[Rfam]
RNA sequence: AAAUAGCCCAGAUGGAAGUGGCAUCCUUUUAUUGUAGUCUCAGGUGUUACACUUAGCUUGUUGAAGUGUUCUCGAAGACUACAAUAAAAGAUAUAACGGACAGCUGGAAAAAGC
Numbered sequence: 001a002a003a004u005a006g007c008c009c010a011g012a013u014g015g016a017a018g019u020g021g022c023a024u025c026c027u028u029u030u031a032u033u034g035u036a037g038u039c040u041c042a043g044g045u046g047u048u049a050c051a052c053u054u055a056g057c058u059u060g061u062u063g064a065a066g067u068g069u070u071c072u073c074g075a076a077g078a079c080u081a082c083a084a085u086a087a088a089a090g091a092u093a094u095a096a097c098g099g100a101c102a103g104c105u106g107g108a109a110a111a112a113g114c
Base pairs, nucleotide, nucleotide: 009106010105011104013102014101018097019096023092024091025090029087030086031085032084033083034082035081036080037079038078039077040076
Flavo-1 RNA: a 114-nucleotide sequence from Flavobacterium terrae. It scores 69 bits against the family's covariance model. Rfam classes the family as a small RNA.